[Rfam]
RNA sequence: GCUUCCAAGGAGCGUUGCGACGGAAAUCUCUUUUCCGCCAGGCUUGGAAUCACAGGCGUAAGCCGGUAGUUUGCUUUUCAUUUGCCUUUCUUGUUUCUGAUGAUGCAAAAAAUGAACAAAUUUCCGGCCUUGCUGACCACAACUGCGCUCACGUUAC
Numbered sequence: 001g002c003u004u005c006c007a008a009g010g011a012g013c014g015u016u017g018c019g020a021c022g023g024a025a026a027u028c029u030c031u032u033u034u035c036c037g038c039c040a041g042g043c044u045u046g047g048a049a050u051c052a053c054a055g056g057c058g059u060a061a062g063c064c065g066g067u068a069g070u071u072u073g074c075u076u077u078u079c080a081u082u083u084g085c086c087u088u089u090c091u092u093g094u095u096u097c098u099g100a101u102g103a104u105g106c107a108a109a110a111a112a113u114g115a116a117c118a119a120a121u122u123u124c125c126g127g128c129c130u131u132g133c134u135g136a137c138c139a140c141a142a143c144u145g146c147g148c149u150c151a152c153g154u155u156a157c
Stems, first nucleotide, its partner, number of pairs: 003049006021037006
Overview: Rfam assigns this 157-nucleotide RNA sequence from Cognatundibacterium rugosum to the family "SAH (S-adenosyl-L-homocysteine) riboswitch aptamer". It scores 47 bits against the family's covariance model. Lineage of the source: Bacteria > Betaproteobacteria > Burkholderiales > Oxalobacteraceae > Cognatundibacterium. Rfam 15.1 lists 1,354 matches to the family in 1,132 species.